[Rfam]
RNA sequence: GGAGGUUGGGCCCUCCGCGAUCGCCCGCGCAGGGGGAGGUCGCAAACCACCGCGAACUGCUGCGGUAAAGAGCCGUGGUGGUGAGCUCGCGGAAAAGGCGCCCGGUGAGGUGUCAGGU
Numbered sequence: 001g002g003a004g005g006u007u008g009g010g011c012c013c014u015c016c017g018c019g020a021u022c023g024c025c026c027g028c029g030c031a032g033g034g035g036g037a038g039g040u041c042g043c044a045a046a047c048c049a050c051c052g053c054g055a056a057c058u059g060c061u062g063c064g065g066u067a068a069a070g071a072g073c074c075g076u077g078g079u080g081g082u083g084a085g086c087u088c089g090c091g092g093a094a095a096a097g098g099c100g101c102c103c104g105g106u107g108a109g110g111u112g113u114c115a116g117g118u
Stems, first nucleotide, its partner, number of pairs: 001016005017043006024036003028033001048117001050092006056082002059079003063075004097114006
The record is a 118-nucleotide sequence, which matches "Group II catalytic intron D1-D4-2" in Rfam.
Rfam 15.1 lists 1,231 matches to the family in 625 species.
For this family Rfam cites "The ins and outs of group II introns" (Bonen and Vogel, Trends Genet, 2001).
Rfam describes the family as follows. Group II introns are found in rRNA, tRNA and mRNA of organelles in fungi, plants and protists, and also in mRNA in bacteria.